Notes: The record is a 148-nucleotide RNA sequence from Variovorax paradoxus, which matches "radC RNA" in Rfam.

RNA sequence: CCACAUCCGAAAUGCCUGCCGACGUCGUCGGCGACAUGCCCAGGUAGCCUGCGGUCUUGGAGGCUACGGCGCGGCUUGCCGUGCUGACCGCUACCCGUUCGCUUCGCAUCCUGGCUGCGAACAAUCACCGCUGCGCGGUGGUGGAUGC
Numbered sequence: 001c002c003a004c005a006u007c008c009g010a011a012a013u014g015c016c017u018g019c020c021g022a023c024g025u026c027g028u029c030g031g032c033g034a035c036a037u038g039c040c041c042a043g044g045u046a047g048c049c050u051g052c053g054g055u056c057u058u059g060g061a062g063g064c065u066a067c068g069g070c071g072c073g074g075c076u077u078g079c080c081g082u083g084c085u086g087a088c089c090g091c092u093a094c095c096c097g098u099u100c101g102c103u104u105c106g107c108a109u110c111c112u113g114g115c116u117g118c119g120a121a122c123a124a125u126c127a128c129c130g131c132u133g134c135g136c137g138g139u140g141g142u143g144g145a146u147g148c
Base pairs, nucleotide, nucleotide: 012037013036014035015033018032019031020030021029022028023027044067045066046065047064048063049062053089054088055087056086068085069084070083071082072081073080074079117148118147119146124142125141126140127139128138129137130136131135
NCBI's taxonomy places the organism under Bacteria, Pseudomonadota, Betaproteobacteria, Burkholderiales, Variovorax. Rfam classes the family as a cis-regulatory element. It scores 126 bits against the family's covariance model.